[Rfam]
RNA sequence: GGGUUGACGGUGAAUGCCUUGGCUGAUGGCCGCGAUGAAGGACGUGGUAAGCUGCGAAAAGUCUCGGGGAGUUGCACGCGAACGGUGAUCCGGGAAUGUCCGAAUGGGGAAACCCUCCUUGGUGAAAGUCAAGGAAUCUCUUUAGCUGAAUACAUAGGCUUAAGAGAAGCGAACGUGGGGAAGUGAACCAUCUCAGUACCCACAGGAAGAGAAAACAAAAGUGAUUCCGGUAGUAGCGGCGAGCGAAACCGGAACAGCCCAAACCUUAUACGUGUAAGCUUGCAGGCGUUGCGUAUGGGGGGUCGUGGGAGCCACAAGUCCGAGCUGCUUAUCGGGCACAGAGUUACAAAGUCAACGUUUAGCGGAACGGUAUGGAAAGGCUGACGGUACAGGGUGAUAGUCCCGUAUGCGAAAAGCGAUUGACCUCUGAGUGGAUUUCCCAAGUACAGCGGGGCACGAGAAACCUUGCUGGAAUUUGCCGCGACCAUGCGGUAAGGCUAAAUAGGUCCAUCAGACCGAUAGUGAACUAGUACCGUGAGGGAAAGGCGAAAAGAACCCCGAUGAGGGGAGUGAAAUAGAACCUGAAACCGUCAAUCUACA
Numbered sequence: 001g002g003g004u005u006g007a008c009g010g011u012g013a014a015u016g017c018c019u020u021g022g023c024u025g026a027u028g029g030c031c032g033c034g035a036u037g038a039a040g041g042a043c044g045u046g047g048u049a050a051g052c053u054g055c056g057a058a059a060a061g062u063c064u065c066g067g068g069g070a071g072u073u074g075c076a077c078g079c080g081a082a083c084g085g086u087g088a089u090c091c092g093g094g095a096a097u098g099u100c101c102g103a104a105u106g107g108g109g110a111a112a113c114c115c116u117c118c119u120u121g122g123u124g125a126a127a128g129u130c131a132a133g134g135a136a137u138c139u140c141u142u143u144a145g146c147u148g149a150a151u152a153c154a155u156a157g158g159c160u161u162a163a164g165a166g167a168a169g170c171g172a173a174c175g176u177g178g179g180g181a182a183g184u185g186a187a188c189c190a191u192c193u194c195a196g197u198a199c200c201c202a203c204a205g206g207a208a209g210a211g212a213a214a215a216c217a218a219a220a221g222u223g224a225u226u227c228c229g230g231u232a233g234u235a236g237c238g239g240c241g242a243g244c245g246a247a248a249c250c251g252g253a254a255c256a257g258c259c260c261a262a263a264c265c266u267u268a269u270a271c272g273u274g275u276a277a278g279c280u281u282g283c284a285g286g287c288g289u290u291g292c293g294u295a296u297g298g299g300g301g302g303u304c305g306u307g308g309g310a311g312c313c314a315c316a317a318g319u320c321c322g323a324g325c326u327g328c329u330u331a332u333c334g335g336g337c338a339c340a341g342a343g344u345u346a347c348a349a350a351g352u353c354a355a356c357g358u359u360u361a362g363c364g365g366a367a368c369g370g371u372a373u374g375g376a377a378a379g380g381c382u383g384a385c386g387g388u389a390c391a392g393g394g395u396g397a398u399a400g401u402c403c404c405g406u407a408u409g410c411g412a413a414a415a416g417c418g419a420u421u422g423a424c425c426u427c428u429g430a431g432u433g434g435a436u437u438u439c440c441c442a443a444g445u446a447c448a449g450c451g452g453g454g455c456a457c458g459a460g461a462a463a464c465c466u467u468g469c470u471g472g473a474a475u476u477u478g479c480c481g482c483g484a485c486c487a488u489g490c491g492g493u494a495a496g497g498c499u500a501a502a503u504a505g506g507u508c509c510a511u512c513a514g515a516c517c518g519a520u521a522g523u524g525a526a527c528u529a530g531u532a533c534c535g536u537g538a539g540g541g542a543a544a545g546g547c548g549a550a551a552a553g554a555a556c557c558c559c560g561a562u563g564a565g566g567g568g569a570g571u572g573a574a575a576u577a578g579a580a581c582c583u584g585a586a587a588c589c590g591u592c593a594a595u596c597u598a599c600a
Stems, first nucleotide, its partner, number of pairs: 001597010016582001017546002021517002023514007030506002032170002040101003043056003062095007071083003106115003116135007137167005144160004174205001175203005185192002215222002225502001226253005236244002256499004264300011307441003312434004349426001351424005356418005362410003368383004386390001392404003447471008478493005533540002556568004
Notes: The record is a 600-nucleotide part of an RNA from Holophaga foetida, which matches "Bacterial large subunit ribosomal RNA" in Rfam. Rfam links the family to the GO terms structural constituent of ribosome and ribosome. The organism belongs to Holophaga, within Bacteria.